[Rfam]
RNA sequence: GAGAGCGCGGCUCGAGAGGGCCGCGCUAGUCGGGACCCGGUCAUUGUUGACGCCGAUCGGGAUCAGCCGGCAAGACCGUCAAAUUGCGGGGACGCGUUGCCAGGCCGUCGGUAGGGCCUUGUCGGGGAAACCCGUCAAGGCACCCGGGCUAAUCACCCGGGGUAUCCUAAGAACCCGACGGAUAGACGCUAUCCGCAGCCAAGUCCUAAGUGCCUGAUCCAGGCAUACGGAUGCAGUUCACAGACUAAAUGUCGGUCGGGAGCCGCUCGGCUCCUUAAGGUAUAGUCGGACCGCACCGAGAGGUGUCC
Number, nucleotide and partner (000 for none) at each position: 001g000002a000003g000004a000005g000006c000007g000008c000009g000010g000011c000012u000013c000014g000015a000016g000017a000018g000019g000020g000021c000022c000023g000024c000025g000026c000027u000028a000029g000030u000031c000032g000033g000034g000035a000036c000037c000038c000039g000040g000041u000042c000043a000044u000045u000046g000047u000048u000049g000050a000051c000052g000053c000054c000055g000056a000057u000058c000059g000060g000061g000062a000063u000064c000065a000066g000067c000068c000069g000070g000071c000072a000073a000074g257075a256076c255077c254078g253079u000080c251081a250082a000083a000084u000085u197086g196087c195088g194089g193090g192091g000092a000093c000094g000095c188096g187097u186098u185099g000100c000101c000102a000103g000104g000105c000106c000107g000108u000109c000110g000111g000112u000113a000114g000115g000116g000117c000118c000119u000120u000121g000122u000123c000124g000125g000126g000127g000128a000129a000130a000131c000132c000133c000134g000135u000136c000137a000138a000139g000140g000141c000142a000143c000144c000145c000146g000147g000148g000149c000150u000151a000152a000153u000154c000155a000156c000157c000158c000159g000160g000161g000162g000163u000164a000165u000166c000167c000168u000169a000170a000171g000172a000173a000174c000175c000176c000177g000178a000179c000180g000181g000182a000183u000184a000185g098186a097187c096188g095189c000190u000191a000192u090193c089194c088195g087196c086197a085198g237199c236200c000201a000202a000203g232204u231205c230206c229207u000208a000209a000210g000211u225212g224213c223214c222215u221216g000217a000218u000219c000220c000221a215222g214223g213224c212225a211226u000227a000228c000229g206230g205231a204232u203233g000234c000235a000236g199237u198238u000239c000240a000241c288242a000243g287244a286245c285246u284247a283248a000249a000250u081251g080252u000253c078254g077255g076256u075257c074258g000259g274260g273261a272262g271263c270264c269265g000266c000267u000268c000269g264270g263271c262272u261273c260274c259275u000276u000277a000278a000279g000280g000281u000282a000283u247284a246285g245286u244287c243288g241289g000290a000291c000292c000293g306294c305295a304296c303297c302298g000299a000300g000301a000302g297303g296304u295305g294306u293307c000308c000

Overview:
A member of the RNA family "Group I catalytic intron" from Coccomyxa subellipsoidea, 308 nucleotides long. The source organism's lineage runs through Eukaryota, Viridiplantae, core chlorophytes, Coccomyxaceae and Coccomyxa subellipsoidea. From the family's description: Group I catalytic introns are large self-splicing ribozymes. They catalyse their own excision from mRNA, tRNA and rRNA precursors in a wide range of organisms. The core secondary structure consists of 9 paired regions (P1-P9). The family's consensus secondary structure is taken from published work.